[Rfam]
The record is a 72-nucleotide RNA sequence from Sphingobacterium deserti, which matches "tRNA" in Rfam. The match comes from Rfam's covariance-model search (59 bits). Rfam classes the family as a transfer RNA. Rfam describes the family as follows. Transfer RNA (tRNA) molecules are approximately 80 nucleotides in length. Lineage of the source: Bacteria > Bacteroidota > Sphingobacteriia > Sphingobacteriales > Sphingobacterium.

RNA sequence: GUCUUCGUAGUUCAAUGGAUAGAAUUUCAGAUUCCGGUUCUGAAGAUGUGGGUUCGACCCCCGCCGAGGACA
Numbered sequence: 001g002u003c004u005u006c007g008u009a010g011u012u013c014a015a016u017g018g019a020u021a022g023a024a025u026u027u028c029a030g031a032u033u034c035c036g037g038u039u040c041u042g043a044a045g046a047u048g049u050g051g052g053u054u055c056g057a058c059c060c061c062c063g064c065c066g067a068g069g070a071c072a
Stems, first nucleotide, its partner, number of pairs: 001071007010025004027043005048064005